[Rfam]
RNA: mir-544 microRNA precursor family
RNA sequence: AUCACCUAGGGAUCUUGUUAAAAGGCAGAUUCUGAUUUAGGGACCAAGAUUCUGCAUUUUUAGCAAGUUCCCAAGUGAUGCUA
Numbered sequence: 001a002u003c004a005c006c007u008a009g010g011g012a013u014c015u016u017g018u019u020a021a022a023a024g025g026c027a028g029a030u031u032c033u034g035a036u037u038u039a040g041g042g043a044c045c046a047a048g049a050u051u052c053u054g055c056a057u058u059u060u061u062a063g064c065a066a067g068u069u070c071c072c073a074a075g076u077g078a079u080g081c082u083a
Stems, first nucleotide, its partner, number of pairs: 003077003009071003014067007021059003025055005031049003